The family of this 105-nucleotide sequence from Planococcus lenghuensis is "SAM riboswitch aptamer (S box leader)". The base pairs follow the family's consensus structure, which is taken from published work. Rfam's curators write: The SAM riboswitch is found upstream of a number of genes which code for proteins involved in methionine or cysteine biosynthesis in Gram-positive bacteria. A search with the family's covariance model found it, with a score of 85 bits.

RNA sequence: UUCUUAUCGAGAGAAGUUGAGGGACUGGCCCUUUGAUGCUUCAGCAACCAACCGUUUGGUCAGGUGCUAAAUCCAGCAGGCUUUGUGUUGCCUGGCAGAUGAAAA
Numbered sequence: 001u002u003c004u005u006a007u008c009g010a011g012a013g014a015a016g017u018u019g020a021g022g023g024a025c026u027g028g029c030c031c032u033u034u035g036a037u038g039c040u041u042c043a044g045c046a047a048c049c050a051a052c053c054g055u056u057u058g059g060u061c062a063g064g065u066g067c068u069a070a071a072u073c074c075a076g077c078a079g080g081c082u083u084u085g086u087g088u089u090g091c092c093u094g095g096c097a098g099a100u101g102a103a104a105a
Base pairs, nucleotide, nucleotide: 001105002104004102005101006100007099008098013042014041015040016039017038021031022030023029025076026075027074028073043068044067045066046065048064049063051060052059053058072097077094078093079092080091081090